Source information:
This 98-nucleotide sequence from Ornithinimicrobium pratense belongs to the Rfam family "TPP riboswitch aptamer (THI element)". Pairs were carried over by alignment from the consensus structure, which is taken from published work.
RNA sequence: GGUGGUGACGCGGGGUGCCAUCCACCGGAUGGCUGAGAACAGACCCGUCGAACCUGAUCUAGCUCGCACUAGCGAAGGGAACGUCCUGAUGACCGACC
Number, nucleotide and partner (000 for none) at each position: 001g000002g000003u000004g000005g000006u000007g085008a084009c083010g082011c047012g046013g045014g044015g000016u041017g033018c032019c031020a030021u029022c000023c000024a000025c000026c000027g000028g000029a021030u020031g019032g018033c017034u000035g000036a000037g000038a000039a000040c000041a016042g000043a000044c014045c013046c012047g011048u000049c000050g000051a000052a000053c078054c077055u076056g000057a000058u000059c072060u071061a070062g069063c000064u000065c000066g000067c000068a000069c062070u061071a060072g059073c000074g000075a000076a055077g054078g053079g000080a000081a000082c010083g009084u008085c007086c000087u000088g000089a000090u000091g000092a000093c000094c000095g000096a000097c000098c000